[Rfam]
RNA sequence: AGGUUAAUGCUAAUCGUGAUAGGGGUUGUCUAUUUCCUGACACCUAACAUGGUAGCAUUAUCUU
Numbered sequence: 001a002g003g004u005u006a007a008u009g010c011u012a013a014u015c016g017u018g019a020u021a022g023g024g025g026u027u028g029u030c031u032a033u034u035u036c037c038u039g040a041c042a043c044c045u046a047a048c049a050u051g052g053u054a055g056c057a058u059u060a061u062c063u064u
Base pairs, nucleotide, nucleotide: 005060006059007058008057009056010055011054012053014051020046021045022044023043025041026040027039
A member of the RNA family "mir-155 microRNA precursor family" from Xiphophorus maculatus, 64 nucleotides long. Gene Ontology terms of the family: RISC complex and miRNA-mediated post-transcriptional gene silencing. The match comes from Rfam's covariance-model search (57 bits).